The record is a 75-nucleotide RNA from Ictidomys tridecemlineatus, which matches "Small nucleolar RNA SNORD26" in Rfam. The organism belongs to Ictidomys, within Eukaryota. The family is grouped with related families in Rfam's "SNORD26 clan". It is annotated as a C/D-box small nucleolar RNA. A reference for the family is Tycowski et al. (1996), "A small nucleolar RNA requirement for site-specific ribose methylation of rRNA in Xenopus", Proc Natl Acad Sci U S A. Rfam 15.1 lists 451 matches to the family in 401 species.

RNA sequence: CUACAGGGAUGAUUUACGAUUUGAACUCUCUCUUUCUGAUGGUUUAGUGGAGAAAAUGUAAAAGUUCUGAGUAGC
Numbered sequence: 001c002u003a004c005a006g007g008g009a010u011g012a013u014u015u016a017c018g019a020u021u022u023g024a025a026c027u028c029u030c031u032c033u034u035u036c037u038g039a040u041g042g043u044u045u046a047g048u049g050g051a052g053a054a055a056a057u058g059u060a061a062a063a064g065u066u067c068u069g070a071g072u073a074g075c
Stems, first nucleotide, its partner, number of pairs: 001074004